Shown here is a 120-nucleotide sequence from Sulfuriferula nivalis, a member of the family "Guanidine-I riboswitch aptamer". It scores 73 bits against the family's covariance model. This family represents a conserved RNA structure found upstream of the ykkC and yxkD genes in Bacillus subtilis and related genes in other bacteria.
RNA sequence: ACUGAGGGGCACUAGGGUUCCGAUUGAUAAAUUUAACUUUACCAAUGACUGGUCCAAGAGUGCACCGACCUCGAUGUUGACAACAUCGGCGUUCCACGGAGGGAUAAAAGCCCGGGAGAA
Numbered sequence: 001a002c003u004g005a006g007g008g009g010c011a012c013u014a015g016g017g018u019u020c021c022g023a024u025u026g027a028u029a030a031a032u033u034u035a036a037c038u039u040u041a042c043c044a045a046u047g048a049c050u051g052g053u054c055c056a057a058g059a060g061u062g063c064a065c066c067g068a069c070c071u072c073g074a075u076g077u078u079g080a081c082a083a084c085a086u087c088g089g090c091g092u093u094c095c096a097c098g099g100a101g102g103g104a105u106a107a108a109a110g111c112c113c114g115g116g117a118g119a120a
Stems, first nucleotide, its partner, number of pairs: 007066002009063004015055002020052002022049001023046004028041004067093003071089006095115001097118001101113003